[Rfam]
RNA sequence: AGAAAGAGACAGACAAAGGCUGGGAACAGGCAGAGCAUGGAUUGAGCUACUAACAGAAAUAUCUGUUUUGGCUCUACCCAUGCACUGCCUCUUCCCUGGCUUGUGAAUCUUCUUUUUCU
Dot-bracket structure: ...............(((.(.(((((.((((((.((((((...((...........................))...)))))).)))))).))))).).))).................